[Rfam]
Nucleotides: 145
Base pairs, nucleotide, nucleotide: 028061029060030059031058032057033056034048035047036046104130105129106128107127108126109125110124111123112122113121
Number, partner (000 for none) and nucleotide at each position: 001000g002000u003000g004000a005000a006000u007000u008000a009000u010000c011000c012000a013000u014000u015000u016000g017000u018000a019000c020000c021000a022000a023000a024000g025000a026000c027000a028061g029060u030059a031058g032057g033056g034048g035047c036046g037000g038000c039000u040000u041000a042000g043000u044000a045000c046036c047035g048034c049000u050000u051000a052000a053000u054000u055000a056033u057032c058031c059030u060029g061028c062000c063000g064000a065000g066000g067000g068000c069000a070000a071000a072000g073000g074000a075000a076000u077000c078000a079000u080000u081000c082000u083000c084000u085000a086000u087000u088000u089000a090000g091000a092000u093000g094000a095000u096000g097000a098000a099000u100000u101000u102000c103000u104130g105129c106128c107127u108126c109125u110124u111123g112122u113121c114000u115000g116000u117000c118000a119000u120000u121113g122112a123111u124110a125109a126108g127107g128106g129105g130104c131000u132000u133000u134000u135000c136000u137000u138000u139000u140000g141000u142000c143000g144000g145000u

Shown here is a 145-nucleotide RNA from Candidatus Kurthia intestinigallinarum, a member of the family "Ribosomal protein L10 leader". A reference for the family is Iben and Draper (2008), "Specific interactions of the L10(L12)4 ribosomal protein complex with mRNA, rRNA, and L11", Biochemistry. About the family: This family is a putative r-protein leader autoregulatory structure found in B. subtilis and other low-GC Gram-positive bacteria. It is located in the 5' untranslated regions of mRNAs encoding ribosomal proteins L10 and L12 (rplJ-rplL). A Rho-independent transcription terminator structure that is probably involved in regulation is included at the 3' end. Rfam classes the family as a cis-regulatory leader. The match comes from Rfam's covariance-model search (79 bits). The family's consensus secondary structure was predicted with CMfinder.